[Rfam]
RNA sequence: UAUGCUACAAUAAGACUGUUGCUCAGCAACCCUUGGUGCUUAGUUCCCUUUCACCAAGCAUAUUAGACACGUCGUUUUGAGUUAAAAACAGACGUCAAAGGAGAAAAAUG
Numbered sequence: 001u002a003u004g005c006u007a008c009a010a011u012a013a014g015a016c017u018g019u020u021g022c023u024c025a026g027c028a029a030c031c032c033u034u035g036g037u038g039c040u041u042a043g044u045u046c047c048c049u050u051u052c053a054c055c056a057a058g059c060a061u062a063u064u065a066g067a068c069a070c071g072u073c074g075u076u077u078u079g080a081g082u083u084a085a086a087a088a089c090a091g092a093c094g095u096c097a098a099a100g101g102a103g104a105a106a107a108a109u110g
Stems, first nucleotide, its partner, number of pairs: 018030005032058007045103001047101004069095004

Source information
The record is a 110-nucleotide RNA sequence from Streptococcus iniae, which matches "PreQ1-II (pre queuosine) riboswitch aptamer" in Rfam. The source organism's lineage runs through Bacteria, Bacillota, Bacilli, Lactobacillales and Streptococcus. It scores 79 bits against the family's covariance model. About the family: preQ1-II riboswitch was first reported for Weinberg et al. 2007 it was recognised in Streptococcaceae and Lactococcus families in 5' untranslated regions of genes of a membrane protein classified as COG4708 or DUF988.